[Rfam]
RNA: Small nucleolar RNA Z43
Organism: Hordeum vulgare
RNA sequence: GGACGGUGACAAUUGAUAUUUGGUCUCGUUCAUGGUAACUGGCAUCUUCUUUUGGUCGACCAUUCUGUUGUAUCAUCUCCCAUAUUCUGUGUCC
Numbered sequence: 001g002g003a004c005g006g007u008g009a010c011a012a013u014u015g016a017u018a019u020u021u022g023g024u025c026u027c028g029u030u031c032a033u034g035g036u037a038a039c040u041g042g043c044a045u046c047u048u049c050u051u052u053u054g055g056u057c058g059a060c061c062a063u064u065c066u067g068u069u070g071u072a073u074c075a076u077c078u079c080c081c082a083u084a085u086u087c088u089g090u091g092u093c094c
Stems, first nucleotide, its partner, number of pairs: 001094004043054002